[Rfam]
RNA sequence: UAAUGACAAUAUAAAAAGAAGCCCUACUAGACAUAGGACUUCCUUGCAGAGCCGUUAAUGACGGUGACAUGUUUAGAAUGUAAAA
Number, nucleotide and partner (000 for none) at each position: 001u000002a000003a000004u000005g000006a000007c000008a000009a000010u000011a000012u000013a000014a000015a000016a000017a000018g000019a000020a000021g000022c000023c037024c036025u035026a034027c000028u000029a000030g000031a000032c000033a000034u026035a025036g024037g023038a000039c000040u000041u000042c000043c000044u000045u000046g000047c000048a000049g000050a000051g065052c064053c063054g062055u061056u060057a000058a000059u000060g056061a055062c054063g053064g052065u051066g000067a000068c000069a000070u000071g000072u000073u000074u000075a000076g000077a000078a000079u000080g000081u000082a000083a000084a000085a000

The family of this 85-nucleotide RNA from Secundilactobacillus mixtipabuli is "RNA anti-toxin A". Rfam classes the family as an antitoxin RNA. A reference for the family is Fozo et al. (2010), "Abundance of type I toxin-antitoxin systems in bacteria: searches for new candidates and discovery of novel families", Nucleic Acids Res. The source organism's lineage runs through Bacteria, Bacillota, Bacilli, Lactobacillales and Secundilactobacillus. Pairs were carried over by alignment from the consensus structure, which was predicted with RNAalifold. Rfam 15.1 lists 190 matches to the family in 120 species. It scores 59 bits against the family's covariance model.